[Rfam]
RNA: glmS glucosamine-6-phosphate activated ribozyme aptamer
Nucleotides: 171
Base pairs, nucleotide, nucleotide: 020049021048022047023046024045025044026043029040058090059089060088061087062086067079068078069077070076091110092109093108094107095106096105115161116160117159118158119157120156121155129146130145131144132143134141135140
Number, partner (000 for none) and nucleotide at each position: 001000a002000c003000u004000g005000a006000u007000c008000g009000u010000a011000a012000a013000g014000c015000g016000c017000c018000a019000g020049c021048a022047c023046u024045g025044u026043a027000g028000c029040u030000g031000c032000c033000c034000g035000a036000c037000g038000u039000g040029g041000a042000g043026u044025a045024c046023a047022g048021u049020g050000g051000a052000c053000g054000a055000g056000g057000u058090g059089g060088a061087g062086g063000u064000u065000u066000a067079u068078c069077g070076a071000a072000a073000g074000a075000u076070u077069c078068g079067g080000c081000g082000g083000g084000u085000a086062c087061c088060u089059c090058c091110c092109g093108g094107c095106a096105g097000u098000c099000g100000u101000a102000u103000c104000a105096c106095u107094g108093c109092c110091g111000u112000g113000g114000a115161g116160c117159g118158c119157a120156g121155g122000g123000a124000c125000a126000a127000a128000a129146c130145a131144u132143c133000g134141g135140a136000g137000u138000g139000a140135u141134c142000g143132g144131a145130u146129g147000g148000a149000c150000a151000a152000a153000g154000a155121c156120c157119u158118g159117c160116g161115c162000u163000u164000g165000a166000u167000a168000c169000g170000u171000u